A member of the RNA family "c-di-AMP riboswitch aptamer (ydaO/yuaA leader)" from Candidatus Frankia alpina, 234 nucleotides long. A search with the family's covariance model found it, with a score of 59 bits. The organism belongs to Frankia, within Bacteria.

RNA sequence: UCGGGCGGCACGCCGAAUCCUGCCCCCGACCGGCGAUUUCACCAGACUGGGCGGCAGGAACGGGGGAACCAUCUCCGAGCGUCGAAAGGAUUCGAUGCUCUCGGGGUGAAGCCAUAAGUGACGGUCGCACGAGGGUCUUUCGGUGCGAGCACACGUCCCCAGGAAUACCUGGCAUGGCCGGGCAGUUCCCAGCCCGAAUCCGACAGCUCACCUCGCAGGCGUGGGGAAGGACCA
Numbered sequence: 001u002c003g004g005g006c007g008g009c010a011c012g013c014c015g016a017a018u019c020c021u022g023c024c025c026c027c028g029a030c031c032g033g034c035g036a037u038u039u040c041a042c043c044a045g046a047c048u049g050g051g052c053g054g055c056a057g058g059a060a061c062g063g064g065g066g067a068a069c070c071a072u073c074u075c076c077g078a079g080c081g082u083c084g085a086a087a088g089g090a091u092u093c094g095a096u097g098c099u100c101u102c103g104g105g106g107u108g109a110a111g112c113c114a115u116a117a118g119u120g121a122c123g124g125u126c127g128c129a130c131g132a133g134g135g136u137c138u139u140u141c142g143g144u145g146c147g148a149g150c151a152c153a154c155g156u157c158c159c160c161a162g163g164a165a166u167a168c169c170u171g172g173c174a175u176g177g178c179c180g181g182g183c184a185g186u187u188c189c190c191a192g193c194c195c196g197a198a199u200c201c202g203a204c205a206g207c208u209c210a211c212c213u214c215g216c217a218g219g220c221g222u223g224g225g226g227a228a229g230g231a232c233c234a
Base pairs, nucleotide, nucleotide: 011221012220013219014218018059019058020057021056022055023054024053061215062214063213064212065211070103104201105200106199112177113176114175115174180195181194182193183192